[Rfam]
Background:
Shown here is a 102-nucleotide sequence from Pongo abelii, a member of the family "Y RNA". The literature on the family includes a 2000 paper in Genes Dev by Chen et al., "Ro ribonucleoproteins contribute to the resistance of Deinococcus radiodurans to ultraviolet irradiation". By type it is a non-coding RNA gene. The match comes from Rfam's covariance-model search (61 bits). The organism belongs to Pongo, within Eukaryota. About the family: Y RNAs are components of the Ro ribonucleoprotein particle (Ro RNP), in association with Ro60 and La proteins.

RNA sequence: GGCUGGUCAGAGUGCAGUGGUAUUUACAACUAAUUGAUCACAACCAGUUACGGAUUUCUUUGUUCCUUCUCUAAUCCCACUGCUUCAGUUGACCAGUGUAAA
Numbered sequence: 001g002g003c004u005g006g007u008c009a010g011a012g013u014g015c016a017g018u019g020g021u022a023u024u025u026a027c028a029a030c031u032a033a034u035u036g037a038u039c040a041c042a043a044c045c046a047g048u049u050a051c052g053g054a055u056u057u058c059u060u061u062g063u064u065c066c067u068u069c070u071c072u073a074a075u076c077c078c079a080c081u082g083c084u085u086c087a088g089u090u091g092a093c094c095a096g097u098g099u100a101a102a
Base pairs, nucleotide, nucleotide: 002097003096004095005094006093007092008091010090011089014086016081017080018079019078020077028064029063030062032060033059